[Rfam]
Rfam assigns this 362-nucleotide RNA sequence from Cohnella nanjingensis to the family "transfer-messenger RNA". The literature on the family includes a 2002 paper in Nucleic Acids Res by Laslett et al., "BRUCE: a program for the detection of transfer-messenger RNA genes in nucleotide sequences". The source organism's lineage runs through Bacteria, Bacillati, Bacillota, Bacilli and Cohnella.
RNA sequence: GGGGGCGUUUAUGGAUUCGACGGGGAUAGUUCGAGCAUGGGUUGCGGGUAGUGGGGACGCGUCCGCUUCAUCAACGCUAAAGCCUAUUAAAUGGCAACCAACGUACAACUUUAGCAGCAGCCUAAGAAACUGUAUGCUAAGCUUCUACUCUCCAUCGCCCAUGUGGCGGGAUAGGGGCUCAACUUUAGUGGGAUACGCUGUCUAGUCUCCGCCUGGGGCUAGCUGAAGAAGACAAUCAGGCUGACCCGAAGCGGAGCUGGUUACGGAGCGCUGCUAGGGUGACAUCAAAUCCGUGACUACACCCGUAGAAGCCUGUGUGCCGUUAUCUUCGGACAGGGGUUCGACUCCCCUCGCCUCCACCA
Dot-bracket structure: (((((((.............((((((((((..(.(((((((((.((((((((((....[[[[)))))......]]]]...................................((((((((.........)))).))))..((((((.(((.((((..[[[[[)))).)))..)))))).........]]]]].....(.(.(((((....[[[[[..)))))).)...........]]]]]..((((.(...(..(((.[[[[.[[))).)...).)))).........]]..]]]]...)))))....))))))))).).))))))))))...(((((.......))))))))))))....
Numbered sequence: 001g002g003g004g005g006c007g008u009u010u011a012u013g014g015a016u017u018c019g020a021c022g023g024g025g026a027u028a029g030u031u032c033g034a035g036c037a038u039g040g041g042u043u044g045c046g047g048g049u050a051g052u053g054g055g056g057a058c059g060c061g062u063c064c065g066c067u068u069c070a071u072c073a074a075c076g077c078u079a080a081a082g083c084c085u086a087u088u089a090a091a092u093g094g095c096a097a098c099c100a101a102c103g104u105a106c107a108a109c110u111u112u113a114g115c116a117g118c119a120g121c122c123u124a125a126g127a128a129a130c131u132g133u134a135u136g137c138u139a140a141g142c143u144u145c146u147a148c149u150c151u152c153c154a155u156c157g158c159c160c161a162u163g164u165g166g167c168g169g170g171a172u173a174g175g176g177g178c179u180c181a182a183c184u185u186u187a188g189u190g191g192g193a194u195a196c197g198c199u200g201u202c203u204a205g206u207c208u209c210c211g212c213c214u215g216g217g218g219c220u221a222g223c224u225g226a227a228g229a230a231g232a233c234a235a236u237c238a239g240g241c242u243g244a245c246c247c248g249a250a251g252c253g254g255a256g257c258u259g260g261u262u263a264c265g266g267a268g269c270g271c272u273g274c275u276a277g278g279g280u281g282a283c284a285u286c287a288a289a290u291c292c293g294u295g296a297c298u299a300c301a302c303c304c305g306u307a308g309a310a311g312c313c314u315g316u317g318u319g320c321c322g323u324u325a326u327c328u329u330c331g332g333a334c335a336g337g338g339g340u341u342c343g344a345c346u347c348c349c350c351u352c353g354c355c356u357c358c359a360c361c362a
Stems, first nucleotide, its partner, number of pairs: 001358007021331010033320001035318009045305005050067005059077004113138004117133004141178006148170003152166004158192005198225001200223001202222005211241005244280004249275001253271001256269003260297004265291002335351005